Eukaryotic large subunit ribosomal RNA: a 440-nucleotide part of an RNA from Hesseltinella vesiculosa.
RNA sequence: GGUAGUAGCAAAUAUUCAAAUGAGAACUUUGAAGACUGAAGUGGAGAAAGGUUCCUAGGGAACAGCAGUUGGCCUAGGGUGAGUCGCUCCUAAGAUGUAGGGAAGCUCUGUCAAUGCUGGGCAAUUUUUUUGCCCCACACAUCGAAAGGGAAAUUGGUUAAUAUUCCAAUACUGCGAUAAGGAAUCGAGGUGGCAACACAACAGAACUUGGGGACAGAAGCAUGAAGCCUAGGAAGAGUUAUCUUUUCUUAUUGACACUUUCAAAAACCAUGAAAUCGGUUUAGCCGGAGCAAUGGUUUUCGAGGUGGAAGAGCCAUUCACUCUUUGAAUGGUCUGGUGCCUUUGUGAUUCUCCUUGAAAACCCAAGGGAAAAUAUGAUUUUCUUACGUAGGCGUACUGAUAACCGCAGCAGGUCUCCAAGGUGAACAGCCUCUAGUUGA
Numbered sequence: 001g002g003u004a005g006u007a008g009c010a011a012a013u014a015u016u017c018a019a020a021u022g023a024g025a026a027c028u029u030u031g032a033a034g035a036c037u038g039a040a041g042u043g044g045a046g047a048a049a050g051g052u053u054c055c056u057a058g059g060g061a062a063c064a065g066c067a068g069u070u071g072g073c074c075u076a077g078g079g080u081g082a083g084u085c086g087c088u089c090c091u092a093a094g095a096u097g098u099a100g101g102g103a104a105g106c107u108c109u110g111u112c113a114a115u116g117c118u119g120g121g122c123a124a125u126u127u128u129u130u131u132g133c134c135c136c137a138c139a140c141a142u143c144g145a146a147a148g149g150g151a152a153a154u155u156g157g158u159u160a161a162u163a164u165u166c167c168a169a170u171a172c173u174g175c176g177a178u179a180a181g182g183a184a185u186c187g188a189g190g191u192g193g194c195a196a197c198a199c200a201a202c203a204g205a206a207c208u209u210g211g212g213g214a215c216a217g218a219a220g221c222a223u224g225a226a227g228c229c230u231a232g233g234a235a236g237a238g239u240u241a242u243c244u245u246u247u248c249u250u251a252u253u254g255a256c257a258c259u260u261u262c263a264a265a266a267a268c269c270a271u272g273a274a275a276u277c278g279g280u281u282u283a284g285c286c287g288g289a290g291c292a293a294u295g296g297u298u299u300u301c302g303a304g305g306u307g308g309a310a311g312a313g314c315c316a317u318u319c320a321c322u323c324u325u326u327g328a329a330u331g332g333u334c335u336g337g338u339g340c341c342u343u344u345g346u347g348a349u350u351c352u353c354c355u356u357g358a359a360a361a362c363c364c365a366a367g368g369g370a371a372a373a374u375a376u377g378a379u380u381u382u383c384u385u386a387c388g389u390a391g392g393c394g395u396a397c398u399g400a401u402a403a404c405c406g407c408a409g410c411a412g413g414u415c416u417c418c419a420a421g422g423u424g425a426a427c428a429g430c431c432u433c434u435a436g437u438u439g440a
Stems, first nucleotide, its partner, number of pairs: 015033006034438004043418004049398002054078006063071002085394003089149002094143002097111002100109003119136003153170005173390004178386005183380002190199003207367006216352004221347007229337003232252001234250004256307005267297005276288004314332007404413002420432004
The match comes from Rfam's covariance-model search (3175 bits).